The record is a 54-nucleotide RNA from Synaphobranchus kaupii, which matches "UnaL2 LINE 3' element" in Rfam. It scores 60 bits against the family's covariance model. Rfam classes the family as a cis-regulatory element.
RNA sequence: UGACUGACUUAUUGUAUGUCGCUUUGGAUAAAAGCGUUUGCUAAAUGACUGUAA
Numbered sequence: 001u002g003a004c005u006g007a008c009u010u011a012u013u014g015u016a017u018g019u020c021g022c023u024u025u026g027g028a029u030a031a032a033a034g035c036g037u038u039u040g041c042u043a044a045a046u047g048a049c050u051g052u053a054a
Base pairs, nucleotide, nucleotide: 013043014041015040016039020036021035022034023033024032025031